The record is a 158-nucleotide RNA sequence from Zongyangia hominis, which matches "DUF2800 RNA" in Rfam. NCBI's taxonomy places the organism under Bacteria, Bacillati, Eubacteriales, Oscillospiraceae, Zongyangia. It scores 144 bits against the family's covariance model. The base pairs follow the family's consensus structure, which is taken from published work.
RNA sequence: CCGCCGGAUACCGCAUCAUUUGAUCACUGAUGGCUCAACGGUACCCGGCGGCACAAGUAAAUAAUGUAGCUGCCUUUUGAGCGGGUUUGCUGCAGACCGAAACGGAGAACUCCGUUAGGACUGCGGUCGGUUUCUUGCACCCAUUUUUAGGCAGCACC
Numbered sequence: 001c002c003g004c005c006g007g008a009u010a011c012c013g014c015a016u017c018a019u020u021u022g023a024u025c026a027c028u029g030a031u032g033g034c035u036c037a038a039c040g041g042u043a044c045c046c047g048g049c050g051g052c053a054c055a056a057g058u059a060a061a062u063a064a065u066g067u068a069g070c071u072g073c074c075u076u077u078u079g080a081g082c083g084g085g086u087u088u089g090c091u092g093c094a095g096a097c098c099g100a101a102a103c104g105g106a107g108a109a110c111u112c113c114g115u116u117a118g119g120a121c122u123g124c125g126g127u128c129g130g131u132u133u134c135u136u137g138c139a140c141c142c143a144u145u146u147u148u149a150g151g152c153a154g155c156a157c158c
Stems, first nucleotide, its partner, number of pairs: 001051005007045001009043005014032005033082006067154001069152003089127005102115005